[Rfam]
The record is a 94-nucleotide sequence from Hibiscus trionum, which matches "Small nucleolar RNA R32/R81/Z41" in Rfam. Its family is annotated with nucleolus and RNA processing in the Gene Ontology.
RNA sequence: UUAUGAAGAUGAUGAAAGAAUUUGAUGGGUGAUGAUCUAUCUUUUUUCAUAUGAUCAAAAAAUACCUUUUCGCUACGUUCUUUCUGAUUCAGUA
Numbered sequence: 001u002u003a004u005g006a007a008g009a010u011g012a013u014g015a016a017a018g019a020a021u022u023u024g025a026u027g028g029g030u031g032a033u034g035a036u037c038u039a040u041c042u043u044u045u046u047u048c049a050u051a052u053g054a055u056c057a058a059a060a061a062a063u064a065c066c067u068u069u070u071c072g073c074u075a076c077g078u079u080c081u082u083u084c085u086g087a088u089u090c091a092g093u094a
Base pairs, nucleotide, nucleotide: 004091005090006089007088
The family's consensus secondary structure was predicted with PFOLD. The family has 6 seed sequences and 238 matches in Rfam 15.1.